RNA sequence: UCUCCCGCUUCACCUCCCUGAGCGGGUGCCUUAAUCUACUUAAGGCAUUUUUACCCCCGGCUUUAUCCCCUUUAGCCGGGGGUUUUUGUU
Numbered sequence: 001u002c003u004c005c006c007g008c009u010u011c012a013c014c015u016c017c018c019u020g021a022g023c024g025g026g027u028g029c030c031u032u033a034a035u036c037u038a039c040u041u042a043a044g045g046c047a048u049u050u051u052u053a054c055c056c057c058c059g060g061c062u063u064u065a066u067c068c069c070c071u072u073u074a075g076c077c078g079g080g081g082g083u084u085u086u087u088g089u090u
Stems, first nucleotide, its partner, number of pairs: 004026006028046007054082008
Burkholderia RNA 7 (anti-hemB): a 90-nucleotide RNA sequence from Azoarcus indigens. About the family: This RNA motif was identified by computational search in b-proteobacteria Burkholderia. Co-purified with Hfq, expression confirmed by Northern blot. Pairs were carried over by alignment from the consensus structure, which is taken from published work. A reference for the family is Weinberg et al. (2007), "Identification of 22 candidate structured RNAs in bacteria using the CMfinder comparative genomics pipeline", Nucleic Acids Res. The organism belongs to Azoarcus, within Bacteria.